[Rfam]
Description: FMN riboswitch aptamer (RFN element): a 115-nucleotide sequence from Lactobacillus apis. It scores 87 bits against the family's covariance model. The base pairs follow the family's consensus structure, which is taken from published work. The source organism's lineage runs through Bacteria, Bacillati, Bacilli, Lactobacillaceae and Lactobacillus.
RNA sequence: UGUUGUCUUCAUGGCAGGGUGAAAAUCCCGACCGGUGGUGAGAGUCCACGACCCACGCAAGUGGUGGAAUCAGUUAUGAUACCGAUAGUUAAAGUCUAGAUGAAAGAAGACAGAC
Numbered sequence: 001u002g003u004u005g006u007c008u009u010c011a012u013g014g015c016a017g018g019g020u021g022a023a024a025a026u027c028c029c030g031a032c033c034g035g036u037g038g039u040g041a042g043a044g045u046c047c048a049c050g051a052c053c054c055a056c057g058c059a060a061g062u063g064g065u066g067g068a069a070u071c072a073g074u075u076a077u078g079a080u081a082c083c084g085a086u087a088g089u090u091a092a093a094g095u096c097u098a099g100a101u102g103a104a105a106g107a108a109g110a111c112a113g114a115c
Stems, first nucleotide, its partner, number of pairs: 003113008017029003031095002033084002035049004044082002053064002069080004086098003